Shown here is a 136-nucleotide RNA from Bacillus solimangrovi, a member of the family "PyrR binding site". Rfam's curators write: This family represents the PyrR binding site and terminator structure. Lineage of the source: Bacteria > Bacillota > Bacilli > Caryophanales > Bacillus. It scores 63 bits against the family's covariance model.
RNA sequence: AUCCCCUUUAAUCAAGUCCUGUGAGGCUUGCAAGGGAACGAUUGUGAGUGUAAUAGUAUGUGUGGUUUAAGCCACACAUCUAUACUCAUGCCGUCAACCUCUUUGCAAGCAUCUCCGAGCAAAGAGGUUUUUUAUU
Numbered sequence: 001a002u003c004c005c006c007u008u009u010a011a012u013c014a015a016g017u018c019c020u021g022u023g024a025g026g027c028u029u030g031c032a033a034g035g036g037a038a039c040g041a042u043u044g045u046g047a048g049u050g051u052a053a054u055a056g057u058a059u060g061u062g063u064g065g066u067u068u069a070a071g072c073c074a075c076a077c078a079u080c081u082a083u084a085c086u087c088a089u090g091c092c093g094u095c096a097a098c099c100u101c102u103u104u105g106c107a108a109g110c111a112u113c114u115c116c117g118a119g120c121a122a123a124g125a126g127g128u129u130u131u132u133u134a135u136u
Stems, first nucleotide, its partner, number of pairs: 004036005013030006056081001058079009093132001096129011
Description:
By type it is a cis-regulatory element.